[Rfam]
Rfam assigns this 74-nucleotide RNA sequence from Myotis lucifugus to the family "mir-9193 microRNA precursor family".
It scores 74 bits against the family's covariance model.
NCBI's taxonomy places the organism under Eukaryota, Bilateria, Sarcopterygii, Amniota, Myotis.
Nucleotides: 074
Stems, first nucleotide, its partner, number of pairs: 004071001006069001008067001010065001012063001015060011027048002030045005
Number, partner (000 for none) and nucleotide at each position: 001000c002000u003000c004071g005000g006069g007000g008067g009000a010065g011000g012063g013000u014000u015060g016059u017058c018057u019056c020055u021054c022053a023052g024051c025050c026000u027048g028047g029000a030045u031044u032043g033042c034041a035000a036000g037000a038000g039000g040000c041034u042033g043032c044031a045030g046000g047028c048027u049000a050025g051024g052023c053022u054021g055020a056019g057018g058017g059016a060015c061000c062000c063012c064000a065010c066000c067008u068000g069006u070000g071004c072000a073000c074000g